[Rfam]
RNA sequence: GGACAGAGUAGGUAAACGUGCGUAAAGUGCCUGAGGGACGGGGAGUUGUCCUCAGGACGAACACCGAAAGGUGGCGGUACGUUUACCGCAUCUCGCUGUUC
Numbered sequence: 001g002g003a004c005a006g007a008g009u010a011g012g013u014a015a016a017c018g019u020g021c022g023u024a025a026a027g028u029g030c031c032u033g034a035g036g037g038a039c040g041g042g043g044a045g046u047u048g049u050c051c052u053c054a055g056g057a058c059g060a061a062c063a064c065c066g067a068a069a070g071g072u073g074g075c076g077g078u079a080c081g082u083u084u085a086c087c088g089c090a091u092c093u094c095g096c097u098g099u100u101c
Stems, first nucleotide, its partner, number of pairs: 001101001003099004011087010021076003027058002030056008041093003045089001062073004
RNA: THF (Tetrahydrofolate) riboswitch aptamer
Organism: [Eubacterium] siraeum